[Rfam]
RNA sequence: ACGAUAGUAUGGUAGAAAGAAAUAUCUGAAUUUUUCUACCAUACUAUCUACUAUUGUUAUUGUAGUGUAUAUA
Numbered sequence: 001a002c003g004a005u006a007g008u009a010u011g012g013u014a015g016a017a018a019g020a021a022a023u024a025u026c027u028g029a030a031u032u033u034u035u036c037u038a039c040c041a042u043a044c045u046a047u048c049u050a051c052u053a054u055u056g057u058u059a060u061u062g063u064a065g066u067g068u069a070u071a072u073a
Base pairs, nucleotide, nucleotide: 003048004047005046006045007044008043009042010041011040012039013038014037015036016035017034018033019026020025
RNA: Plastid-psbM 3UTR RNA